[Rfam]
RNA sequence: AUAGCUCUCCAUUCACAACGGAUCGUCGGGCACGUACCUGCCCGUGAAGGGAAAUACCA
Dot-bracket structure: ........((.((((...........((((((......)))))))))).))........
The family of this 59-nucleotide sequence from Arthrobacter yangruifuii is "msiK RNA". Rfam 15.1 lists 1,374 matches to the family in 1,364 species. The family's consensus secondary structure is taken from published work. It is annotated as a cis-regulatory element. The source organism's lineage runs through Bacteria, Actinomycetes, Micrococcales, Micrococcaceae and Arthrobacter.